[Rfam]
RNA sequence: GGGUCAGUGAUGAGAAUUCAUAUUGUCUCGAAGAGAGAUGAAAUCAUGCUCAGUAGGAUUAUGUCGAGGCCC
Numbered sequence: 001g002g003g004u005c006a007g008u009g010a011u012g013a014g015a016a017u018u019c020a021u022a023u024u025g026u027c028u029c030g031a032a033g034a035g036a037g038a039u040g041a042a043a044u045c046a047u048g049c050u051c052a053g054u055a056g057g058a059u060u061a062u063g064u065c066g067a068g069g070c071c072c
Base pairs, nucleotide, nucleotide: 001072002071003070004069005066008063009062

The record is a 72-nucleotide sequence from Callorhinus ursinus, which matches "Small nucleolar RNA SNORD115" in Rfam. By type it is a C/D-box small nucleolar RNA. A reference for the family is Cavaille et al. (2000), "Identification of brain-specific and imprinted small nucleolar RNA genes exhibiting an unusual genomic organization", Proc Natl Acad Sci U S A. The source organism's lineage runs through Eukaryota, Eumetazoa, Euteleostomi, Dipnotetrapodomorpha and Callorhinus. Pairs were carried over by alignment from the consensus structure, which was predicted with PFOLD.